The family of this 66-nucleotide RNA from Chordeiles acutipennis is "mir-302 microRNA precursor family". A search with the family's covariance model found it, with a score of 67 bits. On this family, see Suh et al., Dev Biol 2004: "Human embryonic stem cells express a unique set of microRNAs". The source organism's lineage runs through Eukaryota, Tetrapoda, Neoaves, Strisores and Chordeiles.
[Rfam]
RNA sequence: CCUUCGCUUUAACAUGGAGGUACCCGCUGCCUAAAAAAAGUAAGUGCUUCCAUGUUUCAGUGGUGG
Numbered sequence: 001c002c003u004u005c006g007c008u009u010u011a012a013c014a015u016g017g018a019g020g021u022a023c024c025c026g027c028u029g030c031c032u033a034a035a036a037a038a039a040g041u042a043a044g045u046g047c048u049u050c051c052a053u054g055u056u057u058c059a060g061u062g063g064u065g066g
Stems, first nucleotide, its partner, number of pairs: 001066002005062004011056013026041003